MIR812 microRNA precursor family: a 205-nucleotide sequence from Oryza brachyantha. The family has 22 seed sequences and 57,451 matches in Rfam 15.1. The organism belongs to Oryza, within Eukaryota. Its family is annotated with RISC complex and miRNA-mediated post-transcriptional gene silencing in the Gene Ontology. A search with the family's covariance model found it, with a score of 110 bits. The base pairs follow the family's consensus structure, which was predicted with RNAalifold.
[Rfam]
RNA sequence: AAUAAACCAAUUUUUCACUUUUUACCUAUAAUGUUUGACUCUUUGUCUUAUUCAAAAAAAUUUUGCGAUUAACAUAGUUGUUUUUAUUAGAUUAUAAAUCAUGAAUAGUGUUUUAUAUGUGACUAAUUUUUUUAAUUUUUUGAAAAAUUUUCAAAUAAGACGGAUGGUCAAACGCGGGACACGGAAACCGAAAGUUUGGUUUAUU
Numbered sequence: 001a002a003u004a005a006a007c008c009a010a011u012u013u014u015u016c017a018c019u020u021u022u023u024a025c026c027u028a029u030a031a032u033g034u035u036u037g038a039c040u041c042u043u044u045g046u047c048u049u050a051u052u053c054a055a056a057a058a059a060a061u062u063u064u065g066c067g068a069u070u071a072a073c074a075u076a077g078u079u080g081u082u083u084u085u086a087u088u089a090g091a092u093u094a095u096a097a098a099u100c101a102u103g104a105a106u107a108g109u110g111u112u113u114u115a116u117a118u119g120u121g122a123c124u125a126a127u128u129u130u131u132u133u134a135a136u137u138u139u140u141u142g143a144a145a146a147a148u149u150u151u152c153a154a155a156u157a158a159g160a161c162g163g164a165u166g167g168u169c170a171a172a173c174g175c176g177g178g179a180c181a182c183g184g185a186a187a188c189c190g191a192a193a194g195u196u197u198g199g200u201u202u203a204u205u
Stems, first nucleotide, its partner, number of pairs: 027179001029177001032174001034172007042164010